[Rfam]
Shown here is a 181-nucleotide RNA sequence, a member of the family "malK-I RNA". Rfam classes the family as a cis-regulatory element. Pairs were carried over by alignment from the consensus structure, which is taken from published work. The sequence is in the family's curated seed alignment.
RNA sequence: UAAUAUGCACAGGAAUUACUCCACUUCCUAAUUCCUGCGACAGAAAAGAAAAGGAGGAUCAUCCGCUAACUAGCGGUGCAGCAUUGUGGAGACAUGCUGUAAUGCGUCGGACAUUUUACCUGUCCCUCGCGAGGCGGGCAGUUGAAGAAUUUCGUGCCCGUCAUAGUUCAGAAGAAUGGCA
Numbered sequence: 001u002a003a004u005a006u007g008c009a010c011a012g013g014a015a016u017u018a019c020u021c022c023a024c025u026u027c028c029u030a031a032u033u034c035c036u037g038c039g040a041c042a043g044a045a046a047a048g049a050a051a052a053g054g055a056g057g058a059u060c061a062u063c064c065g066c067u068a069a070c071u072a073g074c075g076g077u078g079c080a081g082c083a084u085u086g087u088g089g090a091g092a093c094a095u096g097c098u099g100u101a102a103u104g105c106g107u108c109g110g111a112c113a114u115u116u117u118a119c120c121u122g123u124c125c126c127u128c129g130c131g132a133g134g135c136g137g138g139c140a141g142u143u144g145a146a147g148a149a150u151u152u153c154g155u156g157c158c159c160g161u162c163a164u165a166g167u168u169c170a171g172a173a174g175a176a177u178g179g180c181a
Stems, first nucleotide, its partner, number of pairs: 008039001010037009063076004068168005077101008086093002104130003109125004133162008144153003
Dot-bracket structure: .......(.(((((((((..........))))))))).).......................[[[[.(((((]]]]((((((((.((....))))))))))..(((..((((.........))))..)))..((((((((...(((....))).)))))))).))))).............